Nucleotides: 070
Stems, first nucleotide, its partner, number of pairs: 004060005010034005045070006051063002
Number, partner (000 for none) and nucleotide at each position: 001000a002000a003000a004060c005059g006058u007057u008056c009000a010034c011033c012032u013031c014030g015000g016000c017000a018000c019000c020000c021000u022000u023000u024000g025000g026000u027000g028000u029000c030014u031013g032012a033011g034010g035000c036000g037000c038000a039000g040000u041000u042000c043000g044000a045070u046069c047068c048067a049066g050065g051063c052062c053000a054000u055000g056008g057007a058006a059005c060004g061000g062052g063051g064000a065050c066049c067048u068047g069046g070045g
This 70-nucleotide sequence from Synechococcus sp. LTW-R belongs to the Rfam family "Glutamine-II riboswitch aptamer". Pairs were carried over by alignment from the consensus structure, which is taken from published work. It scores 67 bits against the family's covariance model. A reference for the family is Huang et al. (2019), "Structure and ligand binding of the glutamine-II riboswitch", Nucleic Acids Res. Its family is annotated with glutamine binding in the Gene Ontology.